[Rfam]
About this RNA
This 45-nucleotide RNA sequence from Granulicella mallensis belongs to the Rfam family "Acido-Lenti-1 RNA". The source organism's lineage runs through Bacteria, Pseudomonadati, Terriglobia, Terriglobales and Granulicella mallensis. The family's RNA type in Rfam is small RNA. It scores 43 bits against the family's covariance model.
RNA sequence: CCCAGGGCUACGCCCUGGGCUGGUAUAGAACGCCCCUUUGGGGCU
Dot-bracket structure: ((((((((...))))))))............(((((...))))).